[Rfam]
RNA sequence: UGAUGUUAGGGUCAAAAGUAGAUAGCAAUGCAUGUUUAUAUGCAAAUUGCUAUCUACUGGCUUGACCCACCAAACACCGACAAUAAGAAUGGAGGUGUUUGCAGGAUUGCGAAAAUUGCGUAGCAAUGAAGCAAUCCGGAGCAUUA
Numbered sequence: 001u002g003a004u005g006u007u008a009g010g011g012u013c014a015a016a017a018g019u020a021g022a023u024a025g026c027a028a029u030g031c032a033u034g035u036u037u038a039u040a041u042g043c044a045a046a047u048u049g050c051u052a053u054c055u056a057c058u059g060g061c062u063u064g065a066c067c068c069a070c071c072a073a074a075c076a077c078c079g080a081c082a083a084u085a086a087g088a089a090u091g092g093a094g095g096u097g098u099u100u101g102c103a104g105g106a107u108u109g110c111g112a113a114a115a116u117u118g119c120g121u122a123g124c125a126a127u128g129a130a131g132c133a134a135u136c137c138g139g140a141g142c143a144u145u146a
Base pairs, nucleotide, nucleotide: 001146002145003144004143005142006141007140010067011066012065013064017058018057019056020055021054022053023052024051025050026049027048028047029046030043031042032041033040034039071101072100073099074098075097076096077095078094081091082090104137105136106135107134108133109132110131115127116126117125118124